Shown here is a 108-nucleotide sequence from Rhizobium sp. Root482, a member of the family "Rhizobiales sRNA Atu_At1". NCBI's taxonomy places the organism under Bacteria, Pseudomonadota, Alphaproteobacteria, Hyphomicrobiales, Rhizobium. A reference for the family is Wilms et al. (2012), "Deep sequencing uncovers numerous small RNAs on all four replicons of the plant pathogen Agrobacterium tumefaciens", RNA Biol. Rfam 15.1 lists 200 matches to the family in 177 species. The base pairs follow the family's consensus structure, which was predicted with CMfinder. The family's RNA type in Rfam is small RNA.
[Rfam]
RNA sequence: AUGCGGGCUGUGUCAACCGGACACGAGGGAGAUGGAGAACGCGGAGAUUUUUCCGGUUUCUCUUCGCGGCCAACGAAACGGCAGUCGAGCUCCCCACCUCUCCGGUCC
Numbered sequence: 001a002u003g004c005g006g007g008c009u010g011u012g013u014c015a016a017c018c019g020g021a022c023a024c025g026a027g028g029g030a031g032a033u034g035g036a037g038a039a040c041g042c043g044g045a046g047a048u049u050u051u052u053c054c055g056g057u058u059u060c061u062c063u064u065c066g067c068g069g070c071c072a073a074c075g076a077a078a079c080g081g082c083a084g085u086c087g088a089g090c091u092c093c094c095c096a097c098c099u100c101u102c103c104g105g106u107c108c
Base pairs, nucleotide, nucleotide: 006107007106008105009104011023012022013021014020025102026101027100028099029098034093035092036091037090040068041067042066043065044064045063046062069082070081071080